[Rfam]
RNA sequence: UUGUAUAUGAUGAACUUACUUGGAUUCCCCUUCAGGACAUCAAAUUGGAUGAUGCAAAUACUAGUUUUACG
Numbered sequence: 001u002u003g004u005a006u007a008u009g010a011u012g013a014a015c016u017u018a019c020u021u022g023g024a025u026u027c028c029c030c031u032u033c034a035g036g037a038c039a040u041c042a043a044a045u046u047g048g049a050u051g052a053u054g055c056a057a058a059u060a061c062u063a064g065u066u067u068u069a070c071g
Stems, first nucleotide, its partner, number of pairs: 002071004

Small nucleolar RNA snoR60: a 71-nucleotide RNA sequence from Leersia perrieri.
A reference for the family is Barneche et al. (2000), "Fibrillarin genes encode both a conserved nucleolar protein and a novel small nucleolar RNA involved in ribosomal RNA methylation in Arabidopsis thaliana", J Biol Chem.
Taxonomically the source falls in Leersia (Eukaryota, Liliopsida, Petrosaviidae, Oryzinae).